Cyano-1 RNA: a 74-nucleotide RNA sequence from Gloeothece verrucosa.

RNA sequence: UGUGGUGUGAGGAAAAAAGUAGAGAAGUGCUUGGGGUCGAAACACGGAAAGACUCCCAGGCACUUUUCUCAUUU
Numbered sequence: 001u002g003u004g005g006u007g008u009g010a011g012g013a014a015a016a017a018a019g020u021a022g023a024g025a026a027g028u029g030c031u032u033g034g035g036g037u038c039g040a041a042a043c044a045c046g047g048a049a050a051g052a053c054u055c056c057c058a059g060g061c062a063c064u065u066u067u068c069u070c071a072u073u074u
Base pairs, nucleotide, nucleotide: 021069022068023067024066025065028062029061033057034056035055036053037052038051
The family's RNA type in Rfam is small RNA.
Lineage of the source: Bacteria > Bacillati > Cyanobacteriota > Chroococcales > Gloeothece verrucosa.